Source information:
Shown here is a 100-nucleotide RNA sequence from Halopolyspora algeriensis, a member of the family "Glycine riboswitch aptamer". The match comes from Rfam's covariance-model search (45 bits). About the family: This family represents the bacterial glycine riboswitch. Lineage of the source: Bacteria > Bacillati > Actinomycetota > Actinomycetes > Halopolyspora. Its Rfam clan is "Glycine riboswitch clan".
[Rfam]
RNA sequence: GGCGACCACGGAGAAAAGCAGGAACCUCCACGUUCCUCGCCCACGGUGCAAGCCGCCUCACACGCGGUGAAACUCUCAGGCCAAUGACUCCGGGGAGACG
Numbered sequence: 001g002g003c004g005a006c007c008a009c010g011g012a013g014a015a016a017a018g019c020a021g022g023a024a025c026c027u028c029c030a031c032g033u034u035c036c037u038c039g040c041c042c043a044c045g046g047u048g049c050a051a052g053c054c055g056c057c058u059c060a061c062a063c064g065c066g067g068u069g070a071a072a073c074u075c076u077c078a079g080g081c082c083a084a085u086g087a088c089u090c091c092g093g094g095g096a097g098a099c100g
Stems, first nucleotide, its partner, number of pairs: 006095002009092005020037004039081003043076001046075001048073001052068005